A member of the RNA family "c-di-GMP-II-GAG riboswitch aptamer", 124 nucleotides long. It is one of the family's seed sequences. Clan: c-di-GMP_II riboswitch clan. The literature on the family includes a 2017 paper in Proc Natl Acad Sci U S A by Weinberg et al., "Bioinformatic analysis of riboswitch structures uncovers variant classes with altered ligand specificity".
[Rfam]
RNA sequence: GCCGAACACGGGAGCAUCGAUCCUCAGGGCGUCAUGUCCGGUCGCCCAUCAGCGCAGAUGCGGGAGAACGCCGCUUCGCGCGCAGUCCUGAGGGGAGCCAAUGGCGAGACCGACCGUCCAUCAC
Numbered sequence: 001g002c003c004g005a006a007c008a009c010g011g012g013a014g015c016a017u018c019g020a021u022c023c024u025c026a027g028g029g030c031g032u033c034a035u036g037u038c039c040g041g042u043c044g045c046c047c048a049u050c051a052g053c054g055c056a057g058a059u060g061c062g063g064g065a066g067a068a069c070g071c072c073g074c075u076u077c078g079c080g081c082g083c084a085g086u087c088c089u090g091a092g093g094g095g096a097g098c099c100a101a102u103g104g105c106g107a108g109a110c111c112g113a114c115c116g117u118c119c120a121u122c123a124c
Base pairs, nucleotide, nucleotide: 001124004121008117009116010115011114014098015097022093023092024091025090026089027088028087029086040111041110042107043106044105045104046103